[Rfam]
RNA: c-di-AMP riboswitch aptamer (ydaO/yuaA leader)
RNA sequence: ACCAUCCUGAGGCCGUUCGUUCAUGGCAGAGGCGGGGGAACCACUUCCCGGGCUUCCUGAGCUGAAGCCCUUGGGGUCAAGUCGUGCGACGGACCAGUUCCGCGGUGCCGCACGGCCGGGUGGCUCCCAUCCGAACCCGACAGCUAACCUCGCAGGCAUUGGGAGAGGUCAU
Numbered sequence: 001a002c003c004a005u006c007c008u009g010a011g012g013c014c015g016u017u018c019g020u021u022c023a024u025g026g027c028a029g030a031g032g033c034g035g036g037g038g039a040a041c042c043a044c045u046u047c048c049c050g051g052g053c054u055u056c057c058u059g060a061g062c063u064g065a066a067g068c069c070c071u072u073g074g075g076g077u078c079a080a081g082u083c084g085u086g087c088g089a090c091g092g093a094c095c096a097g098u099u100c101c102g103c104g105g106u107g108c109c110g111c112a113c114g115g116c117c118g119g120g121u122g123g124c125u126c127c128c129a130u131c132c133g134a135a136c137c138c139g140a141c142a143g144c145u146a147a148c149c150u151c152g153c154a155g156g157c158a159u160u161g162g163g164a165g166a167g168g169u170c171a172u
Stems, first nucleotide, its partner, number of pairs: 012157003018031001020029001032153006042073002074138003082115007118132004